[Rfam]
RNA: Small nucleolar RNA SNORD23
RNA sequence: UGCCCAAUGAUGACACCCAUCCUUGCUCCCCGUGCCCCUCAGGGGCUGUGGGCGACACCAUGGCUGCCCCAGGCAGGGCCGGUUGGGCUGCUGCCGGGGGCUGAGGGCA
Numbered sequence: 001u002g003c004c005c006a007a008u009g010a011u012g013a014c015a016c017c018c019a020u021c022c023u024u025g026c027u028c029c030c031c032g033u034g035c036c037c038c039u040c041a042g043g044g045g046c047u048g049u050g051g052g053c054g055a056c057a058c059c060a061u062g063g064c065u066g067c068c069c070c071a072g073g074c075a076g077g078g079c080c081g082g083u084u085g086g087g088c089u090g091c092u093g094c095c096g097g098g099g100g101c102u103g104a105g106g107g108c109a
Stems, first nucleotide, its partner, number of pairs: 001109005